[Rfam]
Nucleotides: 092
Stems, first nucleotide, its partner, number of pairs: 001043005010031008068091002071088005
Number, partner (000 for none) and nucleotide at each position: 001043g002042g003041u004040u005039c006000g007000g008000g009000a010031g011030c012029u013028a014027u015026c016025c017024g018000g019000u020000g021000g022000g023000a024017c025016g026015g027014a028013u029012g030011g031010c032000a033000g034000g035000u036000a037000u038000g039005g040004a041003a042002c043001c044000g045000c046000c047000c048000c049000c050000c051000u052000u053000c054000a055000u056000u057000c058000g059000c060000c061000u062000u063000g064000c065000g066000g067000c068091g069090u070000g071088c072087a073086a074085u075084g076000g077000g078000c079000c080000c081000c082000g083000a084075c085074a086073u087072u088071g089000c090069g091068c092000a

The record is a 92-nucleotide RNA from Thioclava indica, which matches "Rhodo-rpoB RNA" in Rfam. It scores 65 bits against the family's covariance model.